[Rfam]
Shown here is a 118-nucleotide sequence from Natranaerovirga hydrolytica, a member of the family "FMN riboswitch aptamer (RFN element)".
RNA sequence: AGUAACCUUCAGGGCAGGGUGUAAUUCCCGACCGGCGGUAAAGUCCGCGAACCUUUAACAAGGUUGACUUGGUGUGAUUCCAAGACCGACAGUAAAGUCUGGAUUAAAGAAGGAAAAA
Numbered sequence: 001a002g003u004a005a006c007c008u009u010c011a012g013g014g015c016a017g018g019g020u021g022u023a024a025u026u027c028c029c030g031a032c033c034g035g036c037g038g039u040a041a042a043g044u045c046c047g048c049g050a051a052c053c054u055u056u057a058a059c060a061a062g063g064u065u066g067a068c069u070u071g072g073u074g075u076g077a078u079u080c081c082a083a084g085a086c087c088g089a090c091a092g093u094a095a096a097g098u099c100u101g102g103a104u105u106a107a108a109g110a111a112g113g114a115a116a117a118a
Stems, first nucleotide, its partner, number of pairs: 003116001006113005017029003031098002033088002035048004043086002051064003068084005090101003
The family's consensus secondary structure is taken from published work. From the family's description: The RFN element is a highly conserved domain that is found frequently in the 5'-untranslated regions of prokaryotic mRNAs that encode for flavin mononucleotide (FMN) biosynthesis and transport proteins. On this family, see Vitreschak et al., Nucleic Acids Res 2002: "Regulation of riboflavin biosynthesis and transport genes in bacteria by transcriptional and translational attenuation". Rfam links the family to the GO term FMN binding.